[Rfam]
RNA sequence: GGAUGCUCUGAAGACCUGCUCGCUAGGCCACGCACGGAGGACGCUGGUUCCUCACGGGCCCCGCGCCCGCCUAGGGGAAAGUCCCCGGACCGCCGGCAGAGAGUGCCGGGCGCUGUCGCGCCUCUCCCGCCGCCGCCUCACGCCUCCCUCCGCCGAGAAGCCCCCGGGCCGAGCGGGUGAGCGCGGGGCGGGCCCUCGUCACCGCCACAGACAUGCAGGUAGUGCGCGGGCGCACCAACAGAACGGGGCUCACUCUCAGGCCAUC
Number, nucleotide and partner (000 for none) at each position: 001g000002g265003a264004u263005g262006c000007u260008c259009u258010g257011a256012a000013g000014a220015c219016c218017u217018g216019c215020u000021c000022g000023c074024u073025a072026g071027g070028c069029c000030a000031c000032g000033c000034a000035c000036g000037g053038a052039g051040g050041a049042c000043g000044c000045u000046g000047g000048u000049u041050c040051c039052u038053c037054a000055c000056g000057g000058g000059c000060c000061c000062c000063g000064c000065g000066c000067c000068c000069g028070c027071c026072u025073a024074g023075g000076g000077g000078a000079a000080a250081g249082u000083c248084c247085c246086c245087g000088g000089a000090c000091c000092g000093c000094c000095g107096g106097c105098a104099g000100a000101g000102a000103g000104u098105g097106c096107c095108g123109g122110g121111c120112g119113c118114u000115g000116u000117c000118g113119c112120g111121c110122c109123u108124c000125u192126c191127c190128c000129g000130c000131c188132g000133c186134c185135g184136c183137c000138u000139c181140a000141c179142g000143c000144c000145u000146c000147c000148c000149u000150c176151c175152g174153c173154c000155g000156a000157g000158a000159a000160g169161c168162c167163c000164c000165c000166g000167g162168g161169c160170c000171g000172a000173g153174c152175g151176g150177g000178u000179g141180a000181g139182c000183g136184c135185g134186g133187g000188g131189c000190g127191g126192g125193c000194c000195c000196u000197c000198g000199u000200c000201a000202c000203c000204g000205c000206c000207a000208c000209a000210g000211a000212c000213a000214u000215g019216c018217a017218g016219g015220u014221a000222g235223u234224g233225c232226g231227c000228g000229g000230g000231c226232g225233c224234a223235c222236c000237a000238a000239c000240a000241g000242a000243a000244c000245g086246g085247g084248g083249c081250u080251c000252a000253c000254u000255c000256u011257c010258a009259g008260g007261c000262c005263a004264u003265c002
RNase MRP: a 265-nucleotide RNA sequence from Himantopus himantopus. By type it is a ribozyme. About the family: RNase MRP is an enzymatically active ribonucleoprotein with two distinct roles in eukaryotes. In mitochondria it plays a direct role in the initiation of mitochondrial DNA replication. Gene Ontology terms of the family: ribonuclease MRP activity, rRNA processing and ribonuclease MRP complex. Lineage of the source: Eukaryota > Dinosauria > Neognathae > Neoaves > Himantopus.